[Rfam]
Shown here is a 93-nucleotide RNA, a member of the family "Glutamine-II riboswitch aptamer". It is one of the family's seed sequences. The base pairs follow the family's consensus structure, which is taken from published work. A reference for the family is Huang et al. (2019), "Structure and ligand binding of the glutamine-II riboswitch", Nucleic Acids Res.
RNA sequence: ACGUUCAUCCCAGAGCCAGCUCGAAGCAUUCUUGCCAUCGAUAACUGGCUCGCCAUAGGGACGCAGCAACCUAACGAUGGAACGGGCGUUAGG
Numbered sequence: 001a002c003g004u005u006c007a008u009c010c011c012a013g014a015g016c017c018a019g020c021u022c023g024a025a026g027c028a029u030u031c032u033u034g035c036c037a038u039c040g041a042u043a044a045c046u047g048g049c050u051c052g053c054c055a056u057a058g059g060g061a062c063g064c065a066g067c068a069a070c071c072u073a074a075c076g077a078u079g080g081a082a083c084g085g086g087c088g089u090u091a092g093g
Stems, first nucleotide, its partner, number of pairs: 002084005008061004070093007